[Rfam]
Record summary
The record is a 156-nucleotide sequence from Microvirga brassicacearum, which matches "6S / SsrS RNA" in Rfam. The family has 150 seed sequences and 5,006 matches in Rfam 15.1.
RNA sequence: GCGGGGCUGCGGGGCACGUUUGGAGAUCAUUUCCCCGGGGCCUUAACGAUCCCAAGGGAGCUGUCCCUGACCCGGUCCCUGGACCGGGAUACACGGCGCCCACCUACAUAAGUAGGUUCCCGGGAUCGCUUCUCUGACGACUUUCGCGGCUCCGCA
Number, nucleotide and partner (000 for none) at each position: 001g000002c154003g153004g152005g151006g150007c149008u148009g147010c146011g145012g143013g142014g141015c000016a000017c139018g138019u137020u000021u000022g000023g000024a000025g000026a000027u000028c000029a000030u000031u000032u125033c124034c123035c122036c000037g120038g119039g118040g117041c116042c115043u000044u000045a000046a000047c000048g000049a000050u000051c000052c000053c000054a000055a000056g101057g100058g099059a000060g097061c096062u095063g094064u093065c000066c000067c000068u000069g000070a000071c088072c087073c086074g085075g084076u000077c000078c000079c000080u000081g000082g000083a000084c075085c074086g073087g072088g071089a000090u000091a000092c000093a064094c063095g062096g061097c060098g000099c058100c057101c056102a000103c000104c000105u000106a000107c000108a000109u000110a000111a000112g000113u000114a000115g042116g041117u040118u039119c038120c037121c000122g035123g034124g033125a032126u000127c000128g000129c000130u000131u000132c000133u000134c000135u000136g000137a019138c018139g017140a000141c014142u013143u012144u000145c011146g010147c009148g008149g007150c006151u005152c004153c003154g002155c000156a000
Taxonomically the source falls in Microvirga (Bacteria, Pseudomonadota, Alphaproteobacteria, Hyphomicrobiales).